Shown here is a 121-nucleotide sequence from Lachnospiraceae bacterium C7, a member of the family "FMN riboswitch aptamer (RFN element)". NCBI's taxonomy places the organism under Bacteria, Bacillota, Clostridia, Lachnospirales, Lachnospiraceae. Rfam describes the family as follows. The RFN element is a highly conserved domain that is found frequently in the 5'-untranslated regions of prokaryotic mRNAs that encode for flavin mononucleotide (FMN) biosynthesis and transport proteins. This element is a metabolite-dependent riboswitch that directly binds FMN in the absence of proteins.

[Rfam]
RNA sequence: UAAAGUCUUCGGGGCAGGGUGAGUGUAACAAUUCCCGACCGGCGGUAAAGCCCGCGAGCGAUUAAGCUGAUUUGGUGCAAAUCCAAAGCCGACAGUAAAGUCUGGAUGAGAGAAGAAAUAA
Numbered sequence: 001u002a003a004a005g006u007c008u009u010c011g012g013g014g015c016a017g018g019g020u021g022a023g024u025g026u027a028a029c030a031a032u033u034c035c036c037g038a039c040c041g042g043c044g045g046u047a048a049a050g051c052c053c054g055c056g057a058g059c060g061a062u063u064a065a066g067c068u069g070a071u072u073u074g075g076u077g078c079a080a081a082u083c084c085a086a087a088g089c090c091g092a093c094a095g096u097a098a099a100g101u102c103u104g105g106a107u108g109a110g111a112g113a114a115g116a117a118a119u120a121a
Base pairs, nucleotide, nucleotide: 003119006116007115008114009113010112017036018035019034038101039100040091041090042055043054044053045052050089051088058067059066071087072086073085074084075083093104094103095102
Dot-bracket structure: ..(..(((((......(((..............))).[[((((((....[[))))..((......))...(((((.......)))))]])).(((....]]))).......)))))..)..